Source information:
The record is a 175-nucleotide RNA from Pseudoalteromonas ulvae, which matches "Lysine riboswitch aptamer" in Rfam. The base pairs follow the family's consensus structure, which is taken from published work. Its family is annotated with lysine biosynthetic process in the Gene Ontology. The match comes from Rfam's covariance-model search (102 bits).
[Rfam]
RNA sequence: UAAUUCAGAAGAGGUGCGAAGGCCAGGUAGUACAUAUGAGGACGCGGUGUCCAAUGACUAUGUAUCGAGGGGGACCUUCGCCGAGGGAAAAUGCACACCGCAGUGUUAUUUUCUCGGUUUUAGAGGCUGAAUCCUCUGAACUGUCACCAAUUAAUGGUGGAGAGCUUCUGGCAGU
Numbered sequence: 001u002a003a004u005u006c007a008g009a010a011g012a013g014g015u016g017c018g019a020a021g022g023c024c025a026g027g028u029a030g031u032a033c034a035u036a037u038g039a040g041g042a043c044g045c046g047g048u049g050u051c052c053a054a055u056g057a058c059u060a061u062g063u064a065u066c067g068a069g070g071g072g073g074a075c076c077u078u079c080g081c082c083g084a085g086g087g088a089a090a091a092u093g094c095a096c097a098c099c100g101c102a103g104u105g106u107u108a109u110u111u112u113c114u115c116g117g118u119u120u121u122a123g124a125g126g127c128u129g130a131a132u133c134c135u136c137u138g139a140a141c142u143g144u145c146a147c148c149a150a151u152u153a154a155u156g157g158u159g160g161a162g163a164g165c166u167u168c169u170g171g172c173a174g175u
Stems, first nucleotide, its partner, number of pairs: 006170006016081007024073001030065007085115009116142004121138006144160006